[Rfam]
RNA sequence: UCACUCUGAAAAGCGGCGAGCCGGAUGUCUCAUCCGGCCUCGCCCGCCGACGGGGCAAGCGCUACGGCGCGGAAACUCUCAGGCCUAUGACAGAGCGGGAGGA
Numbered sequence: 001u002c003a004c005u006c007u008g009a010a011a012a013g014c015g016g017c018g019a020g021c022c023g024g025a026u027g028u029c030u031c032a033u034c035c036g037g038c039c040u041c042g043c044c045c046g047c048c049g050a051c052g053g054g055g056c057a058a059g060c061g062c063u064a065c066g067g068c069g070c071g072g073a074a075a076c077u078c079u080c081a082g083g084c085c086u087a088u089g090a091c092a093g094a095g096c097g098g099g100a101g102g103a
Base pairs, nucleotide, nucleotide: 001098002097004095005094006093007092008091015044016043017042018041019040020039046084047083048082049080050079053078054077055076060071061070

The record is a 103-nucleotide RNA from Microbacterium sp. No. 7, which matches "Glycine riboswitch aptamer" in Rfam. A search with the family's covariance model found it, with a score of 38 bits. From the family's description: This family represents the bacterial glycine riboswitch. The source organism's lineage runs through Bacteria, Bacillati, Actinomycetota, Microbacteriaceae and Microbacterium. Rfam links the family to the GO term glycine biosynthetic process.